[Rfam]
RNA: mir-342 microRNA precursor family
Organism: Tupaia belangeri
RNA sequence: GAGACUGGGCUCAAGGUGAGGGGUGCUAUCUGUGACUGAGGGCAUGGUCAGCGGAUUGUCUCACACAGAAAUCGCACCCGUCACCUUGGCCUGCCUA
Numbered sequence: 001g002a003g004a005c006u007g008g009g010c011u012c013a014a015g016g017u018g019a020g021g022g023g024u025g026c027u028a029u030c031u032g033u034g035a036c037u038g039a040g041g042g043c044a045u046g047g048u049c050a051g052c053g054g055a056u057u058g059u060c061u062c063a064c065a066c067a068g069a070a071a072u073c074g075c076a077c078c079c080g081u082c083a084c085c086u087u088g089g090c091c092u093g094c095c096u097a
Base pairs, nucleotide, nucleotide: 012088013087014086015085016084018082019081021079022078023077024076025075026074029069030068031067032066033065034064037063038062039061040060041059